[Rfam]
RNA: tRNA
Organism: Maribellus luteus
RNA sequence: GUGGAUGUAGUUCAGUUGGUUAGAACGUCGGAUUGUGGUUCCGAAGGUCGCCGGUUCAAGUCCGGUCUUCCACC
Numbered sequence: 001g002u003g004g005a006u007g008u009a010g011u012u013c014a015g016u017u018g019g020u021u022a023g024a025a026c027g028u029c030g031g032a033u034u035g036u037g038g039u040u041c042c043g044a045a046g047g048u049c050g051c052c053g054g055u056u057c058a059a060g061u062c063c064g065g066u067c068u069u070c071c072a073c074c
Base pairs, nucleotide, nucleotide: 001073002072003071004070005069007067010026011025012024013023028044029043030042031041032040050066051065052064053063054062